Shown here is an 86-nucleotide sequence from Capsulimonas corticalis, a member of the family "ZMP/ZTP riboswitch aptamer (pfl RNA motif)".
RNA sequence: GGAGGUCGGCGCGACUGGCGCUGGCGGGGAGCUAACCCCGAUGAAACGCCGACCUGAGAAUUCCGCCGUACGCCUGGGCAACCUGU
Numbered sequence: 001g002g003a004g005g006u007c008g009g010c011g012c013g014a015c016u017g018g019c020g021c022u023g024g025c026g027g028g029g030a031g032c033u034a035a036c037c038c039c040g041a042u043g044a045a046a047c048g049c050c051g052a053c054c055u056g057a058g059a060a061u062u063c064c065g066c067c068g069u070a071c072g073c074c075u076g077g078g079c080a081a082c083c084u085g086u
Stems, first nucleotide, its partner, number of pairs: 003055009015043001017074004026039004065079003